[Rfam]
RNA: mir-23 microRNA precursor family
Organism: Gallus gallus
RNA sequence: GGCUGUUUGGGUUCCUGGCAUGAUGAUUUGUGAGUUAAGAUUAAAAUCACAUUGCCAGGGAUUACCACAUAGCC
Number, nucleotide and partner (000 for none) at each position: 001g074002g073003c000004u071005g070006u069007u000008u067009g066010g065011g062012u061013u060014c059015c058016u057017g056018g055019c054020a053021u051022g050023a000024u049025g048026a047027u046028u045029u044030g000031u000032g000033a000034g000035u000036u000037a000038a000039g000040a000041u000042u000043a000044a029045a028046a027047u026048c025049a024050c022051a021052u000053u020054g019055c018056c017057a016058g015059g014060g013061a012062u011063u000064a000065c010066c009067a008068c000069a006070u005071a004072g000073c002074c001